[Rfam]
RNA: mir-132 microRNA precursor family
Nucleotides: 078
Base pairs, nucleotide, nucleotide: 012065013064015062016061017060018059023054024053025052026051027050028049029048030047031046032045
Number, partner (000 for none) and nucleotide at each position: 001000c002000u003000c004000c005000a006000g007000g008000g009000u010000g011000a012065c013064c014000g015062u016061g017060g018059c019000u020000u021000u022000a023054g024053a025052u026051u027050g028049u029048u030047a031046c032045u033000g034000u035000a036000g037000c038000a039000g040000a041000u042000g043000g044000a045032g046031g047030u048029a049028a050027c051026a052025g053024u054023c055000u056000a057000c058000a059018g060017c061016c062015a063000u064013g065012g066000u067000c068000g069000c070000c071000u072000g073000g074000g075000g076000c077000a078000g